A member of the RNA family "terC RNA" from Microvirga sp. VF16, 61 nucleotides long. The base pairs follow the family's consensus structure, which is taken from published work. Lineage of the source: Bacteria > Alphaproteobacteria > Hyphomicrobiales > Methylobacteriaceae > Microvirga. The family has 129 seed sequences and 1,112 matches in Rfam 15.1.
[Rfam]
RNA sequence: CAUCGGCGCCCGGGCCCCUCUGGCAGGAUGCAGCAUGCGACUGUGAUGUCGGAGCCGAUGC
Numbered sequence: 001c002a003u004c005g006g007c008g009c010c011c012g013g014g015c016c017c018c019u020c021u022g023g024c025a026g027g028a029u030g031c032a033g034c035a036u037g038c039g040a041c042u043g044u045g046a047u048g049u050c051g052g053a054g055c056c057g058a059u060g061c
Stems, first nucleotide, its partner, number of pairs: 006055002010052004023044004029039003